[Rfam]
This 78-nucleotide RNA sequence from Albula goreensis belongs to the Rfam family "Small nucleolar RNA SNORD72". snoRNA HBII-240 belongs to the CD family of snoRNAs. It is the human orthologue of the mouse MBII-240 and is predicted to guide 2'O-ribose methylation of the large 28S rRNA at residue U4590. A reference for the family is Huttenhofer et al. (2001), "RNomics: an experimental approach that identifies 201 candidates for novel, small, non-messenger RNAs in mouse", EMBO J. Rfam links the family to the GO terms RNA processing and nucleolus.

RNA sequence: GUCUUGUCAAUGAUGUCCCAUACACAAAUGUCUGAACAUAUGAAUUAUUUUGAUUCUAACUUUGUACUGAGACAAGCC
Dot-bracket structure: ..((((((..............................................................))))))..
By type it is a C/D-box small nucleolar RNA. The base pairs follow the family's consensus structure. It scores 65 bits against the family's covariance model.